[Rfam]
Rfam assigns this 82-nucleotide sequence from Aromatoleum aromaticum to the family "SAH (S-adenosyl-L-homocysteine) riboswitch aptamer". Taxonomically the source falls in Aromatoleum aromaticum (Bacteria, Pseudomonadota, Betaproteobacteria, Rhodocyclaceae). Pairs were carried over by alignment from the consensus structure, which is taken from published work.

RNA sequence: CUUGCUGAGGAGCGCUGCGACCCGCGACGGGCUGUGACUGCCGGGGCCAGGCUCAGCAACCGAACAACGGCGCUCGCAAACC
Numbered sequence: 001c002u003u004g005c006u007g008a009g010g011a012g013c014g015c016u017g018c019g020a021c022c023c024g025c026g027a028c029g030g031g032c033u034g035u036g037a038c039u040g041c042c043g044g045g046g047c048c049a050g051g052c053u054c055a056g057c058a059a060c061c062g063a064a065c066a067a068c069g070g071c072g073c074u075c076g077c078a079a080a081c082c
Stems, first nucleotide, its partner, number of pairs: 002059007021046003